Rfam assigns this 158-nucleotide RNA sequence from Promicromonospora citrea to the family "c-di-AMP riboswitch aptamer (ydaO/yuaA leader)". Lineage of the source: Bacteria > Bacillati > Actinomycetota > Micrococcales > Promicromonospora. About the family: This family represents a conserved RNA structure found upstream of the ydaO and yuaA genes in Bacillus subtilis and related genes in other bacteria. A search with the family's covariance model found it, with a score of 63 bits.

Nucleotides: 158
Stems, first nucleotide, its partner, number of pairs: 002031003032139006042071002072124003080098004101118004
Number, partner (000 for none) and nucleotide at each position: 001000g002031c003030c004029c005000c006000g007000g008000g009000a010000c011000u012000g013000c014000u015000c016000c017000a018000g019000c020000a021000c022000g023000a024000u025000g026000a027000c028000a029004g030003g031002g032139a033138c034137g035136g036135g037134g038000g039000a040000c041000c042071c043070g044000a045000c046000g047000a048000a049000u050000g051000a052000c053000g054000g055000g056000c057000a058000c059000c060000a061000c062000g063000g064000u065000g066000u067000c068000c069000u070043u071042g072124g073123g074122g075000u076000g077000a078000a079000g080098c081097c082096g083095c084000g085000a086000g087000c088000a089000c090000g091000a092000c093000u094000c095083g096082c097081g098080g099000c100000c101118g102117g103116g104115u105000c106000a107000g108000u109000u110000c111000u112000c113000c114000g115104a116103c117102c118101c119000g120000a121000a122074u123073c124072c125000g126000a127000c128000a129000g130000c131000u132000g133000a134037c135036c136035u137034c138033g139032u140000a141000g142000g143000c144000g145000c146000c147000a148000g149000g150000a151000g152000a153000a154000g155000a156000c157000c158000g